[Rfam]
RNA sequence: AUCGCGGCUGUGUCAACCGGACGCGACGGGGAUGGUGAACGCAGCGGUUUUUCCGGUUUCUCGCUGCGGGCAACGAAACGCCAGGCGAGCACCCAACCUGUCCGACCG
Number, nucleotide and partner (000 for none) at each position: 001a000002u000003c000004g000005c000006g107007g106008c000009u104010g000011u023012g022013u021014c020015a000016a000017c000018c000019g000020g014021a013022c012023g011024c000025g102026a101027c100028g099029g098030g097031g000032a000033u000034g093035g092036u091037g090038a000039a000040c068041g067042c066043a065044g064045c063046g062047g000048u000049u000050u000051u000052u000053c000054c000055g000056g000057u000058u000059u000060c000061u000062c046063g045064c044065u043066g042067c041068g040069g082070g081071c080072a000073a000074c000075g000076a000077a000078a000079c000080g071081c070082c069083a000084g000085g000086c000087g000088a000089g000090c037091a036092c035093c034094c000095a000096a000097c030098c029099u028100g027101u026102c025103c000104g009105a000106c007107c006108g000

A member of the RNA family "Rhizobiales sRNA Atu_At1" from Rhizobium sp. BG4, 108 nucleotides long.
For this family Rfam cites "Deep sequencing uncovers numerous small RNAs on all four replicons of the plant pathogen Agrobacterium tumefaciens" (Wilms et al., RNA Biol, 2012).
The source organism's lineage runs through Bacteria, Pseudomonadota, Hyphomicrobiales, Rhizobiaceae and Rhizobium.
Rfam 15.1 lists 200 matches to the family in 177 species.
A search with the family's covariance model found it, with a score of 105 bits.
By type it is a small RNA.
The family's consensus secondary structure was predicted with CMfinder.